[Rfam]
Group II catalytic intron D1-D4-5: a 216-nucleotide RNA sequence from Flavonifractor sp. An10. Rfam links the family to the GO term Group II intron splicing. About the family: Group II introns are found in rRNA, tRNA and mRNA of organelles in fungi, plants and protists, and also in mRNA in bacteria. On this family, see Bonen and Vogel, Trends Genet 2001: "The ins and outs of group II introns". The family has 139 seed sequences and 720 matches in Rfam 15.1. Taxonomically the source falls in Flavonifractor (Bacteria, Bacillati, Clostridia, Oscillospiraceae). The base pairs follow the family's consensus structure.

RNA sequence: CAGAACUGAUAACCCGACAGGUGGAAUGAAGGGGUAACGCCCGGAAACGCCUGCCCUGAUACUCCGAAUGGCGCAGCAAUGAUUACGCACUGCUGUGUCAUAAGCUCGGUGAAGUCGGCUGAAUGCACUCGUAAUAUUGGUGGUUAACAAAGAGAAACAGCCAUAUUUCAAAGCAAACCAGAGGUGGUUGUGGGUGUUAGGCCGGGGGUCUAUGGA
Numbered sequence: 001c002a003g004a005a006c007u008g009a010u011a012a013c014c015c016g017a018c019a020g021g022u023g024g025a026a027u028g029a030a031g032g033g034g035u036a037a038c039g040c041c042c043g044g045a046a047a048c049g050c051c052u053g054c055c056c057u058g059a060u061a062c063u064c065c066g067a068a069u070g071g072c073g074c075a076g077c078a079a080u081g082a083u084u085a086c087g088c089a090c091u092g093c094u095g096u097g098u099c100a101u102a103a104g105c106u107c108g109g110u111g112a113a114g115u116c117g118g119c120u121g122a123a124u125g126c127a128c129u130c131g132u133a134a135u136a137u138u139g140g141u142g143g144u145u146a147a148c149a150a151a152g153a154g155a156a157a158c159a160g161c162c163a164u165a166u167u168u169c170a171a172a173g174c175a176a177a178c179c180a181g182a183g184g185u186g187g188u189u190g191u192g193g194g195u196g197u198u199a200g201g202c203c204g205g206g207g208g209u210c211u212a213u214g215g216a
Stems, first nucleotide, its partner, number of pairs: 018053006032042003054208004064109004068101011080089002116204005125197006131169001133167001138165002173191003177188004
Dot-bracket structure: .................((((((........(((.....))).....))))))((((......(((((((((((((((.((......)).)))))))))))....))))......(((((....(((((((.(....((........................)).).)...(((.((((....)))))))))))))..)))))))))........